Rfam assigns this 201-nucleotide RNA from Streptomyces sp. UH6 to the family "c-di-AMP riboswitch aptamer (ydaO/yuaA leader)". Its family is annotated with cyclic-di-AMP binding and regulation of gene expression in the Gene Ontology.

[Rfam]
RNA sequence: CCCGGGCGGACGCCGAAUCCUGCCGCCGGCCGGGCGACGGGUCGACAGGAGUGGAUCGGCAGGAGUGGAGGACCCGAGCACGACGGGCCGCCGGACUUCGUUCCGGGCGGUCCUUGGGGUGAAGCCGCCGCACGGCGGCCGGGCUACUUCGCGGCCCGAAUCCGACAGGUCAUCCUUCACAGGCGGCUGUCGAAGGGUUGU
Numbered sequence: 001c002c003c004g005g006g007c008g009g010a011c012g013c014c015g016a017a018u019c020c021u022g023c024c025g026c027c028g029g030c031c032g033g034g035c036g037a038c039g040g041g042u043c044g045a046c047a048g049g050a051g052u053g054g055a056u057c058g059g060c061a062g063g064a065g066u067g068g069a070g071g072a073c074c075c076g077a078g079c080a081c082g083a084c085g086g087g088c089c090g091c092c093g094g095a096c097u098u099c100g101u102u103c104c105g106g107g108c109g110g111u112c113c114u115u116g117g118g119g120u121g122a123a124g125c126c127g128c129c130g131c132a133c134g135g136c137g138g139c140c141g142g143g144c145u146a147c148u149u150c151g152c153g154g155c156c157c158g159a160a161u162c163c164g165a166c167a168g169g170u171c172a173u174c175c176u177u178c179a180c181a182g183g184c185g186g187c188u189g190u191c192g193a194a195g196g197g198u199u200g201u
Stems, first nucleotide, its partner, number of pairs: 011185004018064008065180006075116004117163003125138004141157004
The organism belongs to Streptomyces, within Bacteria. A search with the family's covariance model found it, with a score of 39 bits.